[Rfam]
transfer-messenger RNA: a 374-nucleotide RNA sequence from Terrimonas sp. Rfam's curators write: Bacterial tmRNA, also known as 10Sa RNA or SsrA, is named for its dual tRNA and mRNA-like properties. Pairs were carried over by alignment from the consensus structure, which is taken from published work. The family's RNA type in Rfam is non-coding RNA gene. The match comes from Rfam's covariance-model search (124 bits).
RNA sequence: GGGGCUGACCGGUUUUGACAGCAAAGUUCUUUGUACGAGUAAGCAUGCGGUGCGUUGGAUAAUUAGCACCUUAAUCUGAAUAUUCAACAAUUUAAAUGGCAAUACACAGUAUGCCAUGGCUGCCUAAUCAGUGAUUAGUUAGUCAUUUGGGCCGCCGUCCGGGUCUGUCUGUUACCGAGGGCCGCCGCCGACUUAAAAAGAAAACGGAAUGCUGUUAUGCAAGGCUGUGCGCAUAACAUAAGACCUAUACAGCUAAGGAAUACAUUGGUAUGUUGAUGUCCGGUUUGUUCCCGACAAUUAAUCAUCAAAUAAGCAUGUAGAAGGCGUAUGGCGGAUUUGUUUGGACCAGGGUUCGACUCCCUGCAGCUCCACAA
Numbered sequence: 001g002g003g004g005c006u007g008a009c010c011g012g013u014u015u016u017g018a019c020a021g022c023a024a025a026g027u028u029c030u031u032u033g034u035a036c037g038a039g040u041a042a043g044c045a046u047g048c049g050g051u052g053c054g055u056u057g058g059a060u061a062a063u064u065a066g067c068a069c070c071u072u073a074a075u076c077u078g079a080a081u082a083u084u085c086a087a088c089a090a091u092u093u094a095a096a097u098g099g100c101a102a103u104a105c106a107c108a109g110u111a112u113g114c115c116a117u118g119g120c121u122g123c124c125u126a127a128u129c130a131g132u133g134a135u136u137a138g139u140u141a142g143u144c145a146u147u148u149g150g151g152c153c154g155c156c157g158u159c160c161g162g163g164u165c166u167g168u169c170u171g172u173u174a175c176c177g178a179g180g181g182c183c184g185c186c187g188c189c190g191a192c193u194u195a196a197a198a199a200g201a202a203a204a205c206g207g208a209a210u211g212c213u214g215u216u217a218u219g220c221a222a223g224g225c226u227g228u229g230c231g232c233a234u235a236a237c238a239u240a241a242g243a244c245c246u247a248u249a250c251a252g253c254u255a256a257g258g259a260a261u262a263c264a265u266u267g268g269u270a271u272g273u274u275g276a277u278g279u280c281c282g283g284u285u286u287g288u289u290c291c292c293g294a295c296a297a298u299u300a301a302u303c304a305u306c307a308a309a310u311a312a313g314c315a316u317g318u319a320g321a322a323g324g325c326g327u328a329u330g331g332c333g334g335a336u337u338u339g340u341u342u343g344g345a346c347c348a349g350g351g352u353u354c355g356a357c358u359c360c361c362u363g364c365a366g367c368u369c370c371a372c373a374a
Base pairs, nucleotide, nucleotide: 001370002369003368004367005366006365007364019343020342021340022339023338024337025336027334032331039325040324044317045316046315047314048313049070050069051068052067053066056086057085058084059083060082061081116135117134119132120131121130122129152190154188162176163175164174168208169207170206171205172204173203213238214237215236216235217234218233219232220231223254224253225252226251227250228249257291258290259289260288261287262286264284265283268281270279273308274307275306276305277304278303347363348362349361350360351359